[Rfam]
RNA: Bacterial RNase P class A
Organism: Flavobacterium sp. GT3R68
RNA sequence: ACCGCAGACCGCCUUAUCGCCGUUUUGAGCAAUCAUAAGGGAGGAAAGUCCGGACACCAAAGAGUAGCAUAGCGGGUAACACCCGUCGGUCAAGUCGCAAGGCGUGAUUAGGACAAGUGCAACAGAAAGUAUGUACAGGUAAUGCUGUAGUGAAACCAGGUAAACUCUAUGCGGUGAAAUUUCAAGUAUAUCAGCAUUUAAGGGUUACUCGCCCGUUGCUGAAGGGUAGAAAGAUUGAUCAUGCCAGUAAUGGCGUGACUAGAUAAAUGAUAAGGAUUCUGAGCAAUCAGGAUACAGAACCCGGCUUAUAGGUCUGCAUUUUUU
Number, nucleotide and partner (000 for none) at each position: 001a320002c000003c000004g317005c316006a315007g314008a313009c312010c311011g309012c275013c274014u273015u272016a271017u270018c269019g000020c041021c040022g000023u038024u037025u000026u035027g034028a033029g000030c000031a000032a000033u028034c027035a026036u000037a024038a023039g000040g021041g020042a000043g000044g000045a000046a307047a306048g305049u000050c304051c303052g302053g301054a000055c176056a175057c174058c173059a000060a000061a000062g210063a209064g208065u207066a000067g172068c171069a170070u169071a168072g086073c085074g084075g083076g082077u000078a000079a000080c000081a000082c076083c075084c074085g073086u072087c111088g109089g108090u107091c106092a000093a000094g000095u000096c000097g000098c000099a000100a000101g000102g000103c000104g000105u000106g091107a090108u089109u088110a000111g087112g167113a166114c000115a000116a000117g165118u164119g161120c160121a000122a000123c000124a000125g000126a000127a000128a000129g000130u000131a000132u000133g000134u149135a148136c147137a146138g145139g000140u000141a000142a000143u000144g000145c138146u137147g136148u135149a134150g000151u000152g000153a000154a000155a000156c000157c000158a000159g000160g120161u119162a000163a000164a118165c117166u113167c112168u071169a070170u069171g068172c067173g058174g057175u056176g055177a000178a000179a000180u232181u231182u230183c229184a000185a000186g000187u000188a000189u000190a000191u222192c221193a220194g219195c218196a000197u000198u000199u000200a000201a000202g214203g213204g212205u211206u000207a065208c064209u063210c062211g205212c204213c203214c202215g000216u000217u000218g195219c194220u193221g192222a191223a000224g000225g000226g000227u000228a000229g183230a182231a181232a180233g000234a000235u000236u000237g000238a000239u258240c257241a256242u255243g254244c253245c252246a251247g000248u000249a000250a000251u246252g245253g244254c243255g242256u241257g240258a239259c000260u000261a000262g000263a000264u000265a000266a000267a000268u000269g018270a017271u016272a015273a014274g013275g012276a000277u000278u000279c000280u000281g000282a000283g000284c000285a000286a000287u000288c000289a000290g000291g000292a000293u000294a000295c000296a000297g000298a000299a000300c000301c053302c052303g051304g050305c048306u047307u046308a000309u011310a000311g010312g009313u008314c007315u006316g005317c004318a000319u000320u001321u000322u000323u000324u000